RNA: Small nucleolar RNA SNORD69
RNA sequence: CCUAUGAAGCAUGAUGAACUGUAUUGAUCUGACCAUCACCAUGGAGUCUGAAUUCAAUCCAACACUGAGCUUCACAGU
Numbered sequence: 001c002c003u004a005u006g007a008a009g010c011a012u013g014a015u016g017a018a019c020u021g022u023a024u025u026g027a028u029c030u031g032a033c034c035a036u037c038a039c040c041a042u043g044g045a046g047u048c049u050g051a052a053u054u055c056a057a058u059c060c061a062a063c064a065c066u067g068a069g070c071u072u073c074a075c076a077g078u
Stems, first nucleotide, its partner, number of pairs: 002077002005074006